Shown here is a 179-nucleotide sequence, a member of the family "Clostridiales-1 RNA". Rfam classes the family as a small RNA. The family has 194 seed sequences and 1,172 matches in Rfam 15.1.
RNA sequence: GUCUUUGGUGAAUAGUCGGUCAAAGCAUAGGCGGGACGACUGCUUGCAGGCAGGAACGCCUAUGCAUUAGACGGACAAACAGACAUGAGCAAGUAGGGCGACAGCCCGGAAUGCGAAUGCGAAUGGCUGUAGCGGUUCGAGAGUGCGAAGCACGGAGAAACGCGUGAUUCACCAAAGAU
Numbered sequence: 001g002u003c004u005u006u007g008g009u010g011a012a013u014a015g016u017c018g019g020u021c022a023a024a025g026c027a028u029a030g031g032c033g034g035g036a037c038g039a040c041u042g043c044u045u046g047c048a049g050g051c052a053g054g055a056a057c058g059c060c061u062a063u064g065c066a067u068u069a070g071a072c073g074g075a076c077a078a079a080c081a082g083a084c085a086u087g088a089g090c091a092a093g094u095a096g097g098g099c100g101a102c103a104g105c106c107c108g109g110a111a112u113g114c115g116a117a118u119g120c121g122a123a124u125g126g127c128u129g130u131a132g133c134g135g136u137u138c139g140a141g142a143g144u145g146c147g148a149a150g151c152a153c154g155g156a157g158a159a160a161c162g163c164g165u166g167a168u169u170c171a172c173c174a175a176a177g178a179u
Stems, first nucleotide, its partner, number of pairs: 006174007016075002019072001023068002025065009037053001038051001040049003079130004084125003089114003096107004134161001136159003143153004

The family's consensus secondary structure is taken from published work.